[Rfam]
RNA sequence: UAGCGGCCCCGACCGGACACAACAUUCUGCUGCAAUGUUGUGCGACCUGCAGUGUCAGUCGGGCCCUCUA
Numbered sequence: 001u002a003g004c005g006g007c008c009c010c011g012a013c014c015g016g017a018c019a020c021a022a023c024a025u026u027c028u029g030c031u032g033c034a035a036u037g038u039u040g041u042g043c044g045a046c047c048u049g050c051a052g053u054g055u056c057a058g059u060c061g062g063g064c065c066c067u068c069u070a
Stems, first nucleotide, its partner, number of pairs: 001070003005065005021039006044056003
The record is a 70-nucleotide RNA sequence from Aulographum hederae, which matches "bZIP non canonical Hac1/Xbp1 intron" in Rfam.
Pairs were carried over by alignment from the consensus structure, which was predicted with RNAfold.
Lineage of the source: Eukaryota > Dikarya > Ascomycota > dothideomyceta > Aulographum hederae.
The match comes from Rfam's covariance-model search (43 bits).